[Rfam]
The record is an 87-nucleotide RNA sequence from Lactobacillus acidophilus, which matches "Bacterial small signal recognition particle RNA" in Rfam. The family's RNA type in Rfam is non-coding RNA gene. Rfam describes the family as follows. The signal recognition particle (SRP) is a universally conserved ribonucleoprotein involved in the co-translational targeting of proteins to membranes.

RNA sequence: CUUGAUGGGCAAUGUUUGACCUCUGAAUCGUGUCAGGACCGGAAGGUAGCAGCACUAAGGUUGUUCAGGCAUGUGCCUUUUAUUAGA
Numbered sequence: 001c002u003u004g005a006u007g008g009g010c011a012a013u014g015u016u017u018g019a020c021c022u023c024u025g026a027a028u029c030g031u032g033u034c035a036g037g038a039c040c041g042g043a044a045g046g047u048a049g050c051a052g053c054a055c056u057a058a059g060g061u062u063g064u065u066c067a068g069g070c071a072u073g074u075g076c077c078u079u080u081u082a083u084u085a086g087a
Base pairs, nucleotide, nucleotide: 001086002085004081005080007078008077009076010073012072013071014070015069016068017067019064020063023060024059030055031054032053033052038047039046040045